[Rfam]
Nucleotides: 373
Stems, first nucleotide, its partner, number of pairs: 047365004053355003059349001061347001067083002070081004088338003092334001094332002099108003118299003122295001131153004136149005164274003169267001194211001197208002214262001215259003228246002231243004
Number, partner (000 for none) and nucleotide at each position: 001000g002000u003000c004000a005000a006000c007000a008000c009000g010000u011000g012000a013000a014000a015000a016000c017000u018000c019000g020000a021000g022000u023000g024000g025000a026000a027000c028000u029000u030000c031000c032000c033000c034000a035000a036000a037000c038000a039000c040000g041000c042000a043000u044000u045000g046000c047365a048364u049363u050362a051000a052000a053355c054354u055353g056000a057000u058000u059349a060000u061347g062000a063000a064000a065000a066000c067083u068082u069000g070081c071080u072079u073078c074000u075000a076000a077000u078073g079072a080071g081070g082068a083067g084000c085000a086000a087000u088338a089337u090336a091000c092334u093000u094332g095331c096000a097000a098000g099108c100107u101106c102000u103000c104000c105000a106101g107100a108099g109000c110000c111000a112000u113000a114000a115000u116000u117000a118299g119298a120297g121000g122295a123000a124000a125000c126000u127000a128000a129000u130000u131153g132152a133151a134150g135000u136149u137148g138147u139146g140145u141000u142000u143000u144000g145140a146139c147138a148137c149136a150134c151133u152132u153131u154000c155000c156000a157000a158000a159000u160000u161000c162000a163000c164274g165273g166272g167000u168000a169267c170000u171000a172000g173000a174000u175000g176000a177000c178000a179000u180000a181000u182000u183000c184000a185000c186000a187000a188000c189000a190000c191000u192000a193000c194211u195000g196000c197208u198207g199000u200000a201000c202000a203000a204000c205000c206000a207198u208197g209000a210000a211194g212000a213000u214262g215259g216258c217257a218000a219000a220000a221000u222000c223000g224000u225000u226000a227000g228246g229245c230000u231243a232242a233241u234240g235000a236000a237000g238000c239000u240234u241233a242232u243231u244000u245229g246228c247000a248000u249000u250000c251000c252000u253000u254000g255000c256000a257217u258216g259215c260000a261000a262214c263000a264000g265000c266000a267169g268000c269000a270000c271000g272166u273165c274164u275000u276000u277000a278000a279000a280000u281000a282000c283000u284000g285000u286000a287000u288000u289000g290000g291000c292000c293000a294000c295122u296000g297120c298119u299118c300000c301000u302000u303000u304000a305000c306000g307000g308000a309000a310000a311000g312000u313000u314000u315000c316000c317000a318000c319000u320000g321000a322000a323000u324000a325000u326000u327000a328000a329000c330000a331095g332094u333000c334092a335000u336090u337089a338088u339000u340000a341000a342000a343000a344000a345000u346000a347061c348000u349059u350000u351000g352000a353055u354054g355053g356000a357000c358000g359000u360000c361000c362050u363049a364048a365047u366000u367000c368000u369000a370000a371000a372000g373000g